Record summary: A member of the RNA family "Group II catalytic intron D1-D4-5" from Anaerofilum sp. An201, 192 nucleotides long. Rfam 15.1 lists 720 matches to the family in 418 species. Rfam's curators write: Group II introns are found in rRNA, tRNA and mRNA of organelles in fungi, plants and protists, and also in mRNA in bacteria. On this family, see Bonen and Vogel, Trends Genet 2001: "The ins and outs of group II introns". Rfam links the family to the GO term Group II intron splicing.
RNA sequence: GAGAACUGAUAAUCCGAGGAGUGGAAUGAAGGGGUAACGCCCCGAAACGCUCCCACUAAUCCUCCGACUGGCAUCAUUCCUGGUGUCAGAAGCUCGGUGAAGUCGGCAGAGAGCAACCGAAGUAUGGAUAAUACCAUAACCGAAAGCGACCCAGAGGUGGGUUGUGUUGCCUAUAUGCCGGGUGUCGAUAUC
Numbered sequence: 001g002a003g004a005a006c007u008g009a010u011a012a013u014c015c016g017a018g019g020a021g022u023g024g025a026a027u028g029a030a031g032g033g034g035u036a037a038c039g040c041c042c043c044g045a046a047a048c049g050c051u052c053c054c055a056c057u058a059a060u061c062c063u064c065c066g067a068c069u070g071g072c073a074u075c076a077u078u079c080c081u082g083g084u085g086u087c088a089g090a091a092g093c094u095c096g097g098u099g100a101a102g103u104c105g106g107c108a109g110a111g112a113g114c115a116a117c118c119g120a121a122g123u124a125u126g127g128a129u130a131a132u133a134c135c136a137u138a139a140c141c142g143a144a145a146g147c148g149a150c151c152c153a154g155a156g157g158u159g160g161g162u163u164g165u166g167u168u169g170c171c172u173a174u175a176u177g178c179c180g181g182g183u184g185u186c187g188a189u190a191u192c
Stems, first nucleotide, its partner, number of pairs: 018053006031043004054184004064097004068089009104180005113170005118142002125138002146165008